[Rfam]
RNA sequence: CCAAAAAACAUGAUUGAGUGCAGCGUUGAUAAAAUCAUUUGGCAUCUACCCGAAACUUCAUCAACGCUGCACUCAAUGAUGUUUCUC
Number, nucleotide and partner (000 for none) at each position: 001c000002c000003a000004a000005a000006a084007a083008a082009c081010a080011u079012g000013a077014u076015u075016g074017a073018g072019u071020g070021c069022a068023g067024c066025g065026u064027u063028g062029a000030u060031a000032a058033a000034a000035u000036c000037a000038u000039u000040u000041g000042g000043c000044a000045u000046c000047u000048a000049c000050c000051c000052g000053a000054a000055a000056c000057u000058u032059c000060a030061u000062c028063a027064a026065c025066g024067c023068u022069g021070c020071a019072c018073u017074c016075a015076a014077u013078g000079a011080u010081g009082u008083u007084u006085c000086u000087c000
This 87-nucleotide RNA sequence from Lupinus angustifolius belongs to the Rfam family "MIR397 microRNA precursor family". The family's consensus secondary structure was predicted with WAR. A search with the family's covariance model found it, with a score of 64 bits. The family has 7 seed sequences and 496 matches in Rfam 15.1. Lineage of the source: Eukaryota > Pentapetalae > core genistoids > Genisteae > Lupinus. A reference for the family is Mica et al. (2009), "High throughput approaches reveal splicing of primary microRNA transcripts and tissue specific expression of mature microRNAs in Vitis vinifera", BMC Genomics.